[Rfam]
RNA sequence: CCCAGAGGUAUUGAUAGGUGAAGUCGCCCACAAGGUUGACCACUCAAUUACACCAACCUGCGCAGAUGCGCAGGUUUUUUUU
Numbered sequence: 001c002c003c004a005g006a007g008g009u010a011u012u013g014a015u016a017g018g019u020g021a022a023g024u025c026g027c028c029c030a031c032a033a034g035g036u037u038g039a040c041c042a043c044u045c046a047a048u049u050a051c052a053c054c055a056a057c058c059u060g061c062g063c064a065g066a067u068g069c070g071c072a073g074g075u076u077u078u079u080u081u082u
Stems, first nucleotide, its partner, number of pairs: 017054004023040003026036003056075008
Background:
Shown here is an 82-nucleotide sequence from Kluyvera genomosp. 3, a member of the family "OmrA-B family". The source organism's lineage runs through Bacteria, Pseudomonadota, Gammaproteobacteria, Enterobacterales and Kluyvera. A reference for the family is Argaman et al. (2001), "Novel small RNA-encoding genes in the intergenic regions of Escherichia coli", Curr Biol. The match comes from Rfam's covariance-model search (81 bits). The base pairs follow the family's consensus structure, which was predicted with WAR.